[Rfam]
RNA sequence: CAAUGAAAAAAGCAUGGUAACGUGAACGUAAAUUGAUUUGGGUCUUUAGGCCUGUCCUUUCGAAUGCCUUUCGGCUUUGAUAUGGAGGCAUGGUUCCGCAGUAAAAUG
Numbered sequence: 001c002a003a004u005g006a007a008a009a010a011a012g013c014a015u016g017g018u019a020a021c022g023u024g025a026a027c028g029u030a031a032a033u034u035g036a037u038u039u040g041g042g043u044c045u046u047u048a049g050g051c052c053u054g055u056c057c058u059u060u061c062g063a064a065u066g067c068c069u070u071u072c073g074g075c076u077u078u079g080a081u082a083u084g085g086a087g088g089c090a091u092g093g094u095u096c097c098g099c100a101g102u103a104a105a106a107u108g
Stems, first nucleotide, its partner, number of pairs: 013024003040091001042089003050081001052079001054075003

A member of the RNA family "Small nucleolar RNA snoR100" from Rhododendron williamsianum, 108 nucleotides long. Rfam links the family to the GO terms RNA processing and nucleolus. NCBI's taxonomy places the organism under Eukaryota, Streptophytina, Spermatophyta, Pentapetalae, Rhododendron. It scores 69 bits against the family's covariance model.